This 67-nucleotide RNA from Pongo abelii belongs to the Rfam family "mir-1285 microRNA precursor family". Rfam 15.1 lists 264 matches to the family in 27 species. The family's consensus secondary structure was predicted with RNAalifold. Gene Ontology terms of the family: RISC complex and miRNA-mediated post-transcriptional gene silencing. The organism belongs to Pongo, within Eukaryota.
RNA sequence: GAAGGGUCUCAUUUUGUUGCCCAGGCUGGUCUCCAACUCCAACCUGGGCAACAAAAUGAGACCCUGU
Numbered sequence: 001g002a003a004g005g006g007u008c009u010c011a012u013u014u015u016g017u018u019g020c021c022c023a024g025g026c027u028g029g030u031c032u033c034c035a036a037c038u039c040c041a042a043c044c045u046g047g048g049c050a051a052c053a054a055a056a057u058g059a060g061a062c063c064c065u066g067u
Base pairs, nucleotide, nucleotide: 007061008060009059010058011057012056013055014054019049020048021047022046023045024044025043032042